[Rfam]
RNA: Bacterial large signal recognition particle RNA
RNA sequence: UCGUGCUAGACGGGGAGCUAGCGGUGCCCUGUAGCCUGCAAUCCGCUACAGCAGGGUUGAAUCCCUCGUAUAGACUUUAAUUUGUCAGGUCAGUGUAAUUAGGCUGGUGCUGAGAGCUUGGUCCCAUGCAGCAGAAACUCAUGAAAUCCGUCAGGUCCGGAAGGAAGCAGCGGUAAAUGAUACUUUCUGUGUGCCGUGGAAUAACCUAGUUUGAGUUGGCUUAACUGCAAACGCUGGUAGAUUAAUAGUCGACACGAGGUGCACGA
Numbered sequence: 001u002c003g004u005g006c007u008a009g010a011c012g013g014g015g016a017g018c019u020a021g022c023g024g025u026g027c028c029c030u031g032u033a034g035c036c037u038g039c040a041a042u043c044c045g046c047u048a049c050a051g052c053a054g055g056g057u058u059g060a061a062u063c064c065c066u067c068g069u070a071u072a073g074a075c076u077u078u079a080a081u082u083u084g085u086c087a088g089g090u091c092a093g094u095g096u097a098a099u100u101a102g103g104c105u106g107g108u109g110c111u112g113a114g115a116g117c118u119u120g121g122u123c124c125c126a127u128g129c130a131g132c133a134g135a136a137a138c139u140c141a142u143g144a145a146a147u148c149c150g151u152c153a154g155g156u157c158c159g160g161a162a163g164g165a166a167g168c169a170g171c172g173g174u175a176a177a178u179g180a181u182a183c184u185u186u187c188u189g190u191g192u193g194c195c196g197u198g199g200a201a202u203a204a205c206c207u208a209g210u211u212u213g214a215g216u217u218g219g220c221u222u223a224a225c226u227g228c229a230a231a232c233g234c235u236g237g238u239a240g241a242u243u244a245a246u247a248g249u250c251g252a253c254a255c256g257a258g259g260u261g262c263a264c265g266a
Base pairs, nucleotide, nucleotide: 001266002265003264004263005262006261009058010057011056012030013029014028015027017025018024019023035055036054037053038052039051064259065258066257067256068255069254073250074249075248076247079243080242081241082240083239084238085237086236087235088234093232095228096227097226099224100223103220104219106217107216108215114212115211116210117209118208120206121205122204124199125198126197127196128195129191130190132189133188134187135186136185139180140179141178142177148173149172150171151170156165157164158163